[Rfam]
This 181-nucleotide RNA sequence from Actinomadura kijaniata belongs to the Rfam family "c-di-AMP riboswitch aptamer (ydaO/yuaA leader)". It scores 43 bits against the family's covariance model.
RNA sequence: GGCCGGAUCGAGCCGAGUCCCGAGGCCCAUGCCCGGGAGCCGGGGACCCAUUCGCCGGGGACGGACCGCGGACGACGCGGGCCGUCCCCGGCCGGGGUGAACUCACCGCCCGGGCGGUGACAGGGCGGCCUCCGCGCCCGAACCCGUCAGCUAACCCGGUAGGCGACCGAGGAGAGGAGAC
Number, nucleotide and partner (000 for none) at each position: 001g000002g000003c000004c000005g000006g000007a000008u000009c000010g000011a000012g164013c163014c162015g000016a000017g000018u038019c037020c036021c035022g034023a000024g000025g000026c000027c000028c000029a000030u000031g000032c000033c000034c022035g021036g020037g019038a018039g160040c159041c158042g157043g156044g155045g000046a000047c000048c000049c094050a000051u000052u000053c000054g000055c000056c000057g000058g000059g000060g000061a000062c000063g000064g000065a000066c000067c000068g000069c000070g000071g000072a000073c000074g000075a000076c000077g000078c000079g000080g000081g000082c000083c000084g000085u000086c000087c000088c000089c000090g000091g000092c000093c000094g049095g145096g144097g143098u000099g000100a000101a000102c000103u120104c119105a118106c117107c000108g000109c000110c000111c000112g000113g000114g000115c000116g000117g106118u105119g104120a103121c000122a000123g139124g138125g137126c136127g000128g000129c000130c000131u000132c000133c000134g000135c000136g126137c125138c124139c123140g000141a000142a000143c097144c096145c095146g000147u000148c000149a000150g000151c000152u000153a000154a000155c044156c043157c042158g041159g040160u039161a000162g014163g013164c012165g000166a000167c000168c000169g000170a000171g000172g000173a000174g000175a000176g000177g000178a000179g000180a000181c000
Lineage of the source: Bacteria > Bacillati > Actinomycetota > Thermomonosporaceae > Actinomadura.